[Rfam]
RNA sequence: AUCACUUCUCGGCCUUUUGGCUAAGAUCAACUGUAGUAUCUGUUCUUAUCAGUUUAAUAUCUGAUACGUCCUCUGAGGAUUUUUGGAGCAGGGAGUUGGAAUAGGAGCUUGCUCUGUCUACUCCACGCAUCAACCUGGUAUUGCAGUACUUCCAGGAACAGUGCACCCCUC
Numbered sequence: 001a002u003c004a005c006u007u008c009u010c011g012g013c014c015u016u017u018u019g020g021c022u023a024a025g026a027u028c029a030a031c032u033g034u035a036g037u038a039u040c041u042g043u044u045c046u047u048a049u050c051a052g053u054u055u056a057a058u059a060u061c062u063g064a065u066a067c068g069u070c071c072u073c074u075g076a077g078g079a080u081u082u083u084u085g086g087a088g089c090a091g092g093g094a095g096u097u098g099g100a101a102u103a104g105g106a107g108c109u110u111g112c113u114c115u116g117u118c119u120a121c122u123c124c125a126c127g128c129a130u131c132a133a134c135c136u137g138g139u140a141u142u143g144c145a146g147u148a149c150u151u152c153c154a155g156g157a158a159c160a161g162u163g164c165a166c167c168c169c170u171c
Base pairs, nucleotide, nucleotide: 007026008025009024011022012021013020014019047066048065049064050063051062052061068080069079070078071077072076092124093123094122095121096120098118099117104115105114106113107112127164128163129162130161134156135155136154137153138152

A member of the RNA family "U2 spliceosomal RNA" from Spermophilus dauricus, 171 nucleotides long. By type it is a spliceosomal small nuclear RNA. U2 is a small nuclear RNA (snRNA) component of the spliceosome (involved in pre-mRNA splicing). Complementary binding between U2 snRNA (in an area lying towards the 5' end but 3' to hairpin I) and the branchpoint sequence (BPS) of the intron results the bulging out of an unpaired adenosine, on the BPS, which initiates a nucleophilic attack at the intronic 5' splice site, thus starting the first of two transesterification reactions that mediate splicing. The family's consensus secondary structure is taken from published work. Its Rfam clan is "U2 clan". Gene Ontology terms of the family: U2 snRNP, mRNA branch site recognition and pre-mRNA branch point binding.